c-di-AMP riboswitch aptamer (ydaO/yuaA leader): a 139-nucleotide RNA sequence from Streptomyces sp. TverLS-915. The match comes from Rfam's covariance-model search (99 bits).
[Rfam]
RNA sequence: CGCGCGCGUGCGCCGAAUCCCGCGAGGGAACCGGGGAACCACUCUUCCGGGGUGAAUCGGGUGCCCGUACGGGUGCCCGUAGGAGACCUUCCUGCUCCGAACCCGUCAGCUAACCCGGUAGGCGAGAAGGAAGGAAAGG
Numbered sequence: 001c002g003c004g005c006g007c008g009u010g011c012g013c014c015g016a017a018u019c020c021c022g023c024g025a026g027g028g029a030a031c032c033g034g035g036g037a038a039c040c041a042c043u044c045u046u047c048c049g050g051g052g053u054g055a056a057u058c059g060g061g062u063g064c065c066c067g068u069a070c071g072g073g074u075g076c077c078c079g080u081a082g083g084a085g086a087c088c089u090u091c092c093u094g095c096u097c098c099g100a101a102c103c104c105g106u107c108a109g110c111u112a113a114c115c116c117g118g119u120a121g122g123c124g125a126g127a128a129g130g131a132a133g134g135a136a137a138g139g
Base pairs, nucleotide, nucleotide: 011124012123013122014121018029019028020027030119031118032117033116034115035114040049050104051103052102058079059078060077061076062075063074064073065072066071082098083097084096085095

Lineage of the source: Bacteria > Actinomycetota > Kitasatosporales > Streptomycetaceae > Streptomyces.